[Rfam]
RNA sequence: CCUGGCAUAAUGAUGAUUUCCUUUUUGCCGUUUACCCAGCUGAAUAUUAUUUCCUUGAUGUGAGCUGAAUCUGAGAUGCCAGC
Numbered sequence: 001c002c003u004g005g006c007a008u009a010a011u012g013a014u015g016a017u018u019u020c021c022u023u024u025u026u027g028c029c030g031u032u033u034a035c036c037c038a039g040c041u042g043a044a045u046a047u048u049a050u051u052u053c054c055u056u057g058a059u060g061u062g063a064g065c066u067g068a069a070u071c072u073g074a075g076a077u078g079c080c081a082g083c
Stems, first nucleotide, its partner, number of pairs: 002082006
Notes
Rfam assigns this 83-nucleotide sequence from Sphenodon punctatus to the family "Small nucleolar RNA SNORD87". It scores 55 bits against the family's covariance model. By type it is a C/D-box small nucleolar RNA. On this family, see Gogolevskaya et al., Gene 2002: "U87 RNA, a novel C/D box small nucleolar RNA from mammalian cells". The family has 10 seed sequences and 539 matches in Rfam 15.1.